[Rfam]
RNA: Small nucleolar RNA SNORA63
Organism: Hymenochirus boettgeri
RNA sequence: AUGCAGGAUAAGUUACAAUAUAGCUAGACAGUGCUGUGUUGUCGUUCCCCCUGCAUAAAUUAAUGUGUCUCCUUCUAUCCCUGACUGUUUUUAUAGCUGGCAGGGACGCUUGGUUUCAAACAG
Numbered sequence: 001a002u003g004c005a006g007g008a009u010a011a012g013u014u015a016c017a018a019u020a021u022a023g024c025u026a027g028a029c030a031g032u033g034c035u036g037u038g039u040u041g042u043c044g045u046u047c048c049c050c051c052u053g054c055a056u057a058a059a060u061u062a063a064u065g066u067g068u069c070u071c072c073u074u075c076u077a078u079c080c081c082u083g084a085c086u087g088u089u090u091u092u093a094u095a096g097c098u099g100g101c102a103g104g105g106a107c108g109c110u111u112g113g114u115u116u117c118a119a120a121c122a123g
Stems, first nucleotide, its partner, number of pairs: 003054005015042010080104004085099001087097002